[Rfam]
RNA sequence: GCCGGGGUCGUAGCAAACCCUGUAAUCCUGCUAUAGGGAGGCUGGUCAAGGGGACGAUGUCAGCUCGGGGGUACUGCGUACGGAGCCGGGCAUGUUGACCGAGUGUCCGCACUAAGGUUGGCGUCGAUAUGCCCGAGUGUGGGGAACCAGUGCUCGGACAGGUCGUCUAAGGAGGCUCGAAUUGGCUCAGGGUGGAAACACAGCAAGCAAAAGAGUUCGCGUCAGCUAGUAGUGGGAUCGCACCCGUGAAUGCGCGUCCGCUCGCAGCCCGGUCGAAGCGUUGGACCUGAGACUCU
Numbered sequence: 001g002c003c004g005g006g007g008u009c010g011u012a013g014c015a016a017a018c019c020c021u022g023u024a025a026u027c028c029u030g031c032u033a034u035a036g037g038g039a040g041g042c043u044g045g046u047c048a049a050g051g052g053g054a055c056g057a058u059g060u061c062a063g064c065u066c067g068g069g070g071g072u073a074c075u076g077c078g079u080a081c082g083g084a085g086c087c088g089g090g091c092a093u094g095u096u097g098a099c100c101g102a103g104u105g106u107c108c109g110c111a112c113u114a115a116g117g118u119u120g121g122c123g124u125c126g127a128u129a130u131g132c133c134c135g136a137g138u139g140u141g142g143g144g145a146a147c148c149a150g151u152g153c154u155c156g157g158a159c160a161g162g163u164c165g166u167c168u169a170a171g172g173a174g175g176c177u178c179g180a181a182u183u184g185g186c187u188c189a190g191g192g193u194g195g196a197a198a199c200a201c202a203g204c205a206a207g208c209a210a211a212a213g214a215g216u217u218c219g220c221g222u223c224a225g226c227u228a229g230u231a232g233u234g235g236g237a238u239c240g241c242a243c244c245c246g247u248g249a250a251u252g253c254g255c256g257u258c259c260g261c262u263c264g265c266a267g268c269c270c271g272g273u274c275g276a277a278g279c280g281u282u283g284g285a286c287c288u289g290a291g292a293c294u295c296u
Base pairs, nucleotide, nucleotide: 001042002041003040004021005020006019007018008017026039027038028037044294045293046292047291049288050287051286055283056282057281058280059279060278061275063274065272066271067270068269069268074267075266076265077264078263081260083259085257086256090253091252092251093250095248100246101245103243104242105241106240107236108235110234111233112232113231114230116227117226118225119224120223121222122221123220124219125165126164127163128162130160131159133157134156135155136154137153138152139151140149141148142147166172167171174217175216176215177214178213183210185208186207187206192201193200194199
RNA: Metazoan signal recognition particle RNA
Organism: Varroa destructor